The record is a 110-nucleotide RNA from Salvia splendens, which matches "Small nucleolar RNA snoR100" in Rfam. By type it is an H/ACA-box small nucleolar RNA. Gene Ontology terms of the family: nucleolus and RNA processing. It scores 82 bits against the family's covariance model.
[Rfam]
RNA sequence: UAAUGAAGGAAGCAUGGUAAUGUGCACAGAGAGCGAUGUUGCAAGGUCUACAUGUCUGCCCCCUCCGAUUUCUCCUCAUGACUUGGGGGCCUGGUUUUAGACCUACAUUU
Number, nucleotide and partner (000 for none) at each position: 001u000002a000003a000004u000005g000006a000007a000008g000009g000010a000011a000012g025013c024014a023015u022016g000017g000018u000019a000020a000021u000022g015023u014024g013025c012026a000027c000028a000029g000030a000031g000032a000033g000034c000035g000036a000037u000038g000039u000040u000041g000042c000043a000044a092045g091046g090047u089048c088049u000050a000051c000052a000053u000054g082055u081056c080057u000058g000059c000060c000061c000062c000063c000064u000065c000066c000067g000068a000069u000070u000071u000072c000073u000074c000075c000076u000077c000078a000079u000080g056081a055082c054083u000084u000085g000086g000087g000088g048089g047090c046091c045092u044093g000094g000095u000096u000097u000098u000099a000100g000101a000102c000103c000104u000105a000106c000107a000108u000109u000110u000